Annotation: The family of this 133-nucleotide sequence from Intestinibacter bartlettii is "Molybdenum/Tungsten riboswitch aptamer (Moco RNA motif)". The base pairs follow the family's consensus structure, which is taken from published work. The literature on the family includes a 2008 paper in Mol Microbiol by Regulski et al., "in molybdenum cofactor and tungsten cofactor metabolism".
RNA sequence: UAGUAUAUUUUUCUCCGAGCGAAAAUAUCUAAGGAAUUGAUCUAUGAUAUUGAGCCAAGCAUAAAUUGCUUCUGGGUUAGAAAGGAAACUGACUAGCCUUCCGUAUUUGAAAAGGUGAUAUAAAUAUAUUUAC
Numbered sequence: 001u002a003g004u005a006u007a008u009u010u011u012u013c014u015c016c017g018a019g020c021g022a023a024a025a026u027a028u029c030u031a032a033g034g035a036a037u038u039g040a041u042c043u044a045u046g047a048u049a050u051u052g053a054g055c056c057a058a059g060c061a062u063a064a065a066u067u068g069c070u071u072c073u074g075g076g077u078u079a080g081a082a083a084g085g086a087a088a089c090u091g092a093c094u095a096g097c098c099u100u101c102c103g104u105a106u107u108u109g110a111a112a113a114g115g116u117g118a119u120a121u122a123a124a125u126a127u128a129u130u131u132a133c
Base pairs, nucleotide, nucleotide: 003127004126006124012118013117015115016114019055020054024051025050026049027048028047029046033043034042035041057071058070059069060068061067074099075098076097077096078095079094080093083090084089100110101109
Taxonomically the source falls in Intestinibacter bartlettii (Bacteria, Bacillota, Clostridia, Intestinibacter).